RNA: Small Cajal body specific RNA 8
Organism: Orchesella cincta
RNA sequence: UGGGGAGUACAUACGCAAUUAACUAUUAAGGGAUUAGUUAAUUGUCACUACAUUCCCUAAAGUAAAUAUGCCUUCUGAUGACUGCAGAAUUUGAAGGGGAAAUCUGUAGACAGAUACGAGGCAAAUAUUA
Numbered sequence: 001u002g003g004g005g006a007g008u009a010c011a012u013a014c015g016c017a018a019u020u021a022a023c024u025a026u027u028a029a030g031g032g033a034u035u036a037g038u039u040a041a042u043u044g045u046c047a048c049u050a051c052a053u054u055c056c057c058u059a060a061a062g063u064a065a066a067u068a069u070g071c072c073u074u075c076u077g078a079u080g081a082c083u084g085c086a087g088a089a090u091u092u093g094a095a096g097g098g099g100a101a102a103u104c105u106g107u108a109g110a111c112a113g114a115u116a117c118g119a120g121g122c123a124a125a126u127a128u129u130a
Stems, first nucleotide, its partner, number of pairs: 003057005015045004022038004067124001069123006082109007
Dot-bracket structure: ..(((((.......((((...((((.........))))...)))).......))))).........(.((((((.......(((((((..............)))))))........)))))))......